[Rfam]
RNA sequence: UAGAAUAAAGUAGGUAAGGGAAGUCGGCAAAAUAGAUCCGUAACUUCGGGAAAAGGAUUGGCUCUGAGGGUUGAGUCAAAGGAUCUCGUUCUUGAAGGUUUAGCUGAGCAAAGACUACUGGACGGCCUCACCGCUGAAAAGUGGACUUGUGCACGGCUGAAUUAGACGGGGCGAGAACGGUGAGUCUUGACUCGCUUUUCCUUUGGCACUGAACAGCCAACUCAGAACUGGAGCGGACAAGGGGAAUCCGACUGUUUAAUUAAAACAAAGCAUUGCGAUGGCCUCAAAAGGUGUUGACGCAAUGUGAUUUCUGCCCAGUGCUCUGAAUGUCAACUUGAUGAAAUUCAAGCAAGCGCGGGUAAACGGCGGGAGUAACUAUGACUCUCUUAAGGUAGCCAAAUGCCUCGUCAUCUAAUUAGUGACGCGCAUGAAUGGAUUAACGAGAUUCCCACUGUCCCUAUCUACUAUCUAGCGAAACCACAGCCAAGGGAACGGGCUUGGAA
Numbered sequence: 001u002a003g004a005a006u007a008a009a010g011u012a013g014g015u016a017a018g019g020g021a022a023g024u025c026g027g028c029a030a031a032a033u034a035g036a037u038c039c040g041u042a043a044c045u046u047c048g049g050g051a052a053a054a055g056g057a058u059u060g061g062c063u064c065u066g067a068g069g070g071u072u073g074a075g076u077c078a079a080a081g082g083a084u085c086u087c088g089u090u091c092u093u094g095a096a097g098g099u100u101u102a103g104c105u106g107a108g109c110a111a112a113g114a115c116u117a118c119u120g121g122a123c124g125g126c127c128u129c130a131c132c133g134c135u136g137a138a139a140a141g142u143g144g145a146c147u148u149g150u151g152c153a154c155g156g157c158u159g160a161a162u163u164a165g166a167c168g169g170g171g172c173g174a175g176a177a178c179g180g181u182g183a184g185u186c187u188u189g190a191c192u193c194g195c196u197u198u199u200c201c202u203u204u205g206g207c208a209c210u211g212a213a214c215a216g217c218c219a220a221c222u223c224a225g226a227a228c229u230g231g232a233g234c235g236g237a238c239a240a241g242g243g244g245a246a247u248c249c250g251a252c253u254g255u256u257u258a259a260u261u262a263a264a265a266c267a268a269a270g271c272a273u274u275g276c277g278a279u280g281g282c283c284u285c286a287a288a289a290g291g292u293g294u295u296g297a298c299g300c301a302a303u304g305u306g307a308u309u310u311c312u313g314c315c316c317a318g319u320g321c322u323c324u325g326a327a328u329g330u331c332a333a334c335u336u337g338a339u340g341a342a343a344u345u346c347a348a349g350c351a352a353g354c355g356c357g358g359g360u361a362a363a364c365g366g367c368g369g370g371a372g373u374a375a376c377u378a379u380g381a382c383u384c385u386c387u388u389a390a391g392g393u394a395g396c397c398a399a400a401u402g403c404c405u406c407g408u409c410a411u412c413u414a415a416u417u418a419g420u421g422a423c424g425c426g427c428a429u430g431a432a433u434g435g436a437u438u439a440a441c442g443a444g445a446u447u448c449c450c451a452c453u454g455u456c457c458c459u460a461u462c463u464a465c466u467a468u469c470u471a472g473c474g475a476a477a478c479c480a481c482a483g484c485c486a487a488g489g490g491a492a493c494g495g496g497c498u499u500g501g502a503a
Stems, first nucleotide, its partner, number of pairs: 001471004009466008018457003035059005044049001060229002063226006069218005075207009084176003088172004098163001100161001101159006108152003111148003115144005123136004230234001242450007249442002253267003270305008281292004309436003313367003318364002320360004325356001328355003335348004368386006387391001407423005484501005
Eukaryotic large subunit ribosomal RNA: a 503-nucleotide part of an RNA from uncultured eukaryote HF0200_37F04. Taxonomically the source falls in named eukaryotic clones (Eukaryota). The sequence is in the family's curated seed alignment. The base pairs follow the family's consensus structure, which is taken from published work. Gene Ontology terms of the family: ribosome and structural constituent of ribosome.